[Rfam]
RNA sequence: UGAACCAGAAGAGGCGCGUCGACCAGGUAAGGCAUUGCAGGAGCCGUUUUCCGUAAAGCAAGCCCGAGGGGGAGCGACGCCGAGGAAAGGGCCGGUAAACGGCCUGGCCCCUUUCCGACCGCACAGGCUGAAUCCUGUGGGUUGUCACCAGCAUGUUUGUCCGCCGGACAAACGGCACGGUGGGGCGCUUCUGGGUGU
Numbered sequence: 001u002g003a004a005c006c007a008g009a010a011g012a013g014g015c016g017c018g019u020c021g022a023c024c025a026g027g028u029a030a031g032g033c034a035u036u037g038c039a040g041g042a043g044c045c046g047u048u049u050u051c052c053g054u055a056a057a058g059c060a061a062g063c064c065c066g067a068g069g070g071g072g073a074g075c076g077a078c079g080c081c082g083a084g085g086a087a088a089g090g091g092c093c094g095g096u097a098a099a100c101g102g103c104c105u106g107g108c109c110c111c112u113u114u115c116c117g118a119c120c121g122c123a124c125a126g127g128c129u130g131a132a133u134c135c136u137g138u139g140g141g142u143u144g145u146c147a148c149c150a151g152c153a154u155g156u157u158u159g160u161c162c163g164c165c166g167g168a169c170a171a172a173c174g175g176c177a178c179g180g181u182g183g184g185g186c187g188c189u190u191c192u193g194g195g196u197g198u
Stems, first nucleotide, its partner, number of pairs: 006193006016080006024072001031064003035060001084116008092107004117143004122139006145183005